[Rfam]
Vibrio RNA AS7: a 169-nucleotide sequence from Photobacterium proteolyticum. The family's RNA type in Rfam is antisense RNA. Identified by direct cloning an parallel sequencing experiments with 5S/tRNA depletion. Confirmed by Northern blot. For this family Rfam cites "Experimental discovery of sRNAs in Vibrio cholerae by direct cloning, 5S/tRNA depletion and parallel sequencing" (Liu et al., Nucleic Acids Res, 2009). It scores 144 bits against the family's covariance model.
RNA sequence: GGCGUUUGCAGGAGCAGUUUACUGCGAUCUUUGAUGUCCCCACCAAUGUGGUAUGGCAAGCCACAGUUAGCAAAUGAAACAAAUUCACCGCGUUCAAACAUGAUGAUUUCAGCGUCUUCACUGAGACGACGAGCGCGGGCUGCAGCAGAUGCGCCGCCAGCUACGCCAC
Numbered sequence: 001g002g003c004g005u006u007u008g009c010a011g012g013a014g015c016a017g018u019u020u021a022c023u024g025c026g027a028u029c030u031u032u033g034a035u036g037u038c039c040c041c042a043c044c045a046a047u048g049u050g051g052u053a054u055g056g057c058a059a060g061c062c063a064c065a066g067u068u069a070g071c072a073a074a075u076g077a078a079a080c081a082a083a084u085u086c087a088c089c090g091c092g093u094u095c096a097a098a099c100a101u102g103a104u105g106a107u108u109u110c111a112g113c114g115u116c117u118u119c120a121c122u123g124a125g126a127c128g129a130c131g132a133g134c135g136c137g138g139g140c141u142g143c144a145g146c147a148g149a150u151g152c153g154c155c156g157c158c159a160g161c162u163a164c165g166c167c168a169c
Stems, first nucleotide, its partner, number of pairs: 001167005008161002011025001013023002016020001032056001034054005040048001060071002076154001084147001088142001092140004099133001101131002104128002107125002110123003114119001